Glycine riboswitch aptamer: a 101-nucleotide RNA sequence from Clostridiaceae bacterium AF18-31LB. Gene Ontology term of the family: glycine biosynthetic process. A search with the family's covariance model found it, with a score of 56 bits. NCBI's taxonomy places the organism under Bacteria, Bacillati, Bacillota, Clostridia, Clostridiaceae.
RNA sequence: GAUAACUACUCUGGAGAGUCUCGUAAAACGAGCGCCGAAGGUGUACAGCGGAAUGACAUAGUUUCCGCCUAUCUCUCAGGCAAAAGGACAGGGCAUACAUA
Numbered sequence: 001g002a003u004a005a006c007u008a009c010u011c012u013g014g015a016g017a018g019u020c021u022c023g024u025a026a027a028a029c030g031a032g033c034g035c036c037g038a039a040g041g042u043g044u045a046c047a048g049c050g051g052a053a054u055g056a057c058a059u060a061g062u063u064u065c066c067g068c069c070u071a072u073c074u075c076u077c078a079g080g081c082a083a084a085a086g087g088a089c090a091g092g093g094c095a096u097a098c099a100u101a
Stems, first nucleotide, its partner, number of pairs: 007095001009093005020032004034081003037077002041075001043073001047070002